Shown here is a 135-nucleotide RNA sequence from Myripristis murdjan, a member of the family "Small nucleolar RNA SNORA13". Lineage of the source: Eukaryota > Vertebrata > Clupeocephala > Euacanthomorphacea > Myripristis. About the family: ACA13 is a member of the H/ACA class of snoRNA that guide the sites of modification of uridines to pseudouridines.
RNA sequence: UGCCUUUAUGUGUUGCCCAUUCAGUGCUCUCCACAAUGAAUGUGGUGUCAACAAAGGCAUACAGCAAAGCUUGGGUCGGCCUUAGCAAGGUCCCUCCUCGGUUGCCUUGUCAUAAGUUCUACACCAAGUACAAUA
Dot-bracket structure: .((((((...((.((((((((((.(.........).)))))).)))).))..))))))...........((((.((.((....(...(.((...(........)....))..)...))).))..)))).......
Gene Ontology terms of the family: nucleolus and RNA processing. Pairs were carried over by alignment from the consensus structure, which was predicted with CMfinder. By type it is an H/ACA-box small nucleolar RNA.